[Rfam]
RNA sequence: AUCGCAAUGGGACGAAAAGACCCUGUGAACCUUUACUAUAGCUUCGUAUUGACUUCGGGUAAACAAUGUGUAGGAUAGGUGGGAGACUACGAAGGGGCAUCGCUAGGUGUUCUGGAGUCGUCCUUGAAAUACCACCCUUUGUUUACUUGGAGCCUAAUCCCGAUAACUAUCGGGAGACAUUGCGUGGUGGGUAGUUUGACUGGGGUGGUCGCCUCCGAAAGGGUAACGGAGGCUUUCAAAGGUAUCCUCAGCACGCUUGGUAACCGUGCGUAGAGUGUAAUGGCAUAAGGAUGCUUGACUGUGAGACUUACAAGUCGACCAGGUGCGAAAGCAGGACAUAGUGAUCCGGUGGUUCCGUAUGGAAGGGCCAUCGCUCAUAGGAUAAAAGGUACUCCGGGGAUAACAGGCUAGUCUCCCCCAAGAGCUCACAUCGACGGGGAGGUUCGGCACCUCGAUGUCGGCUCGUCACAUCCUGGGGCUGGAGAAGGUCCCAAGGGUUGGGCUGUUCGCCCAUUAAAGUGGCACGCGAGCUGGGUUCAGAACGUCGUGAGACAGUUCGGUCUCUAUCUAUUGCGAUCGUU
Numbered sequence: 001a002u003c004g005c006a007a008u009g010g011g012a013c014g015a016a017a018a019g020a021c022c023c024u025g026u027g028a029a030c031c032u033u034u035a036c037u038a039u040a041g042c043u044u045c046g047u048a049u050u051g052a053c054u055u056c057g058g059g060u061a062a063a064c065a066a067u068g069u070g071u072a073g074g075a076u077a078g079g080u081g082g083g084a085g086a087c088u089a090c091g092a093a094g095g096g097g098c099a100u101c102g103c104u105a106g107g108u109g110u111u112c113u114g115g116a117g118u119c120g121u122c123c124u125u126g127a128a129a130u131a132c133c134a135c136c137c138u139u140u141g142u143u144u145a146c147u148u149g150g151a152g153c154c155u156a157a158u159c160c161c162g163a164u165a166a167c168u169a170u171c172g173g174g175a176g177a178c179a180u181u182g183c184g185u186g187g188u189g190g191g192u193a194g195u196u197u198g199a200c201u202g203g204g205g206u207g208g209u210c211g212c213c214u215c216c217g218a219a220a221g222g223g224u225a226a227c228g229g230a231g232g233c234u235u236u237c238a239a240a241g242g243u244a245u246c247c248u249c250a251g252c253a254c255g256c257u258u259g260g261u262a263a264c265c266g267u268g269c270g271u272a273g274a275g276u277g278u279a280a281u282g283g284c285a286u287a288a289g290g291a292u293g294c295u296u297g298a299c300u301g302u303g304a305g306a307c308u309u310a311c312a313a314g315u316c317g318a319c320c321a322g323g324u325g326c327g328a329a330a331g332c333a334g335g336a337c338a339u340a341g342u343g344a345u346c347c348g349g350u351g352g353u354u355c356c357g358u359a360u361g362g363a364a365g366g367g368c369c370a371u372c373g374c375u376c377a378u379a380g381g382a383u384a385a386a387a388g389g390u391a392c393u394c395c396g397g398g399g400a401u402a403a404c405a406g407g408c409u410a411g412u413c414u415c416c417c418c419c420a421a422g423a424g425c426u427c428a429c430a431u432c433g434a435c436g437g438g439g440a441g442g443u444u445c446g447g448c449a450c451c452u453c454g455a456u457g458u459c460g461g462c463u464c465g466u467c468a469c470a471u472c473c474u475g476g477g478g479c480u481g482g483a484g485a486a487g488g489u490c491c492c493a494a495g496g497g498u499u500g501g502g503c504u505g506u507u508c509g510c511c512c513a514u515u516a517a518a519g520u521g522g523c524a525c526g527c528g529a530g531c532u533g534g535g536u537u538c539a540g541a542a543c544g545u546c547g548u549g550a551g552a553c554a555g556u557u558c559g560g561u562c563u564c565u566a567u568c569u570a571u572u573g574c575g576a577u578c579g580u581u
Base pairs, nucleotide, nucleotide: 001577002576003575004574005573006572007571008570010569011568012567014564015563022398023397024396025395027394028393029390030389031388032387033386035195036194037193038192042187043186045184046183047182048181051154053152054151055150056149057148058147059146060145061144062143063142064141065140066139068137078136079135080134081133082132085119086118087117094113095112096111097110098109099108100107101106158175159174160173161172162171163170164169198210199209200208201207211233212232213231214230215229216228234379236336237335242294243293244292245291246290247289248274249273251269252268253267254266255265275284276283299322300321301320305316306315307314324333325332326331347373348372349371350370351369352368353367355366356365407448408447409446411445412442413441414440415439416438417437418436422432423431459534460532461531462530463529464526465523466522467521468520469519472497473496475492476491477490478489479488480487499513500512501511502510503509540558541557542556543555544553545552546551
RNA: Bacterial large subunit ribosomal RNA, nucleotides 1908 to 2488